[Rfam]
RNA sequence: UAAUGUAAUAGAAAAAGGAAGCCCCGCUGAUAACAGGACUUCCCAUGUAGAGCCGUUUAAGACGGUGACAAAUUUAUACAGUUUAAAUA
Numbered sequence: 001u002a003a004u005g006u007a008a009u010a011g012a013a014a015a016a017g018g019a020a021g022c023c024c025c026g027c028u029g030a031u032a033a034c035a036g037g038a039c040u041u042c043c044c045a046u047g048u049a050g051a052g053c054c055g056u057u058u059a060a061g062a063c064g065g066u067g068a069c070a071a072a073u074u075u076a077u078a079c080a081g082u083u084u085a086a087a088u089a
Stems, first nucleotide, its partner, number of pairs: 023037002026034001052066006

Shown here is an 89-nucleotide RNA from Lactiplantibacillus mudanjiangensis, a member of the family "RNA anti-toxin A". The family's consensus secondary structure was predicted with RNAalifold. On this family, see Fozo et al., Nucleic Acids Res 2010: "Abundance of type I toxin-antitoxin systems in bacteria: searches for new candidates and discovery of novel families". Rfam classes the family as an antitoxin RNA.